The family of this 80-nucleotide RNA sequence from Pelusios castaneus is "mir-2970 microRNA precursor family".

[Rfam]
RNA sequence: GCCACUGCAGACAGUCAGUAGUUGGUCUGGCGUGAGCAGGAAUUCUCAGAUCACCUCUUGGCUGUGCGUGGUGGUACGGA
Numbered sequence: 001g002c003c004a005c006u007g008c009a010g011a012c013a014g015u016c017a018g019u020a021g022u023u024g025g026u027c028u029g030g031c032g033u034g035a036g037c038a039g040g041a042a043u044u045c046u047c048a049g050a051u052c053a054c055c056u057c058u059u060g061g062c063u064g065u066g067c068g069u070g071g072u073g074g075u076a077c078g079g080a
Stems, first nucleotide, its partner, number of pairs: 003073006011065008020056002023053008

Gene Ontology terms of the family: miRNA-mediated post-transcriptional gene silencing and RISC complex. Pairs were carried over by alignment from the consensus structure, which was predicted with RNAalifold. The literature on the family includes a 2011 paper in BMC Genomics by Gunaratne et al., "Song exposure regulates known and novel microRNAs in the zebra finch auditory forebrain".